[Rfam]
RNA sequence: GUCGGUGUGGCAGUGUGGUUAGCUGGUUGUGGGUUUUGACAACAGCCACUAUCUACACUGCCAUACAGAU
Numbered sequence: 001g002u003c004g005g006u007g008u009g010g011c012a013g014u015g016u017g018g019u020u021a022g023c024u025g026g027u028u029g030u031g032g033g034u035u036u037u038g039a040c041a042a043c044a045g046c047c048a049c050u051a052u053c054u055a056c057a058c059u060g061c062c063a064u065a066c067a068g069a070u
Base pairs, nucleotide, nucleotide: 002069003068005066006065009062010061012059013058014057015056016055017054018053020051021050022049024048025047026046027045028044029043030042
Notes: Shown here is a 70-nucleotide RNA sequence from Frankliniella occidentalis, a member of the family "mir-34 microRNA precursor family". The match comes from Rfam's covariance-model search (66 bits). About the family: Human mir-34a was discovered computationally and later experimentally verified. The mature sequence is excised from the 5' arm of the hairpin. For this family Rfam cites "Vertebrate microRNA genes" (Lim et al., Science, 2003).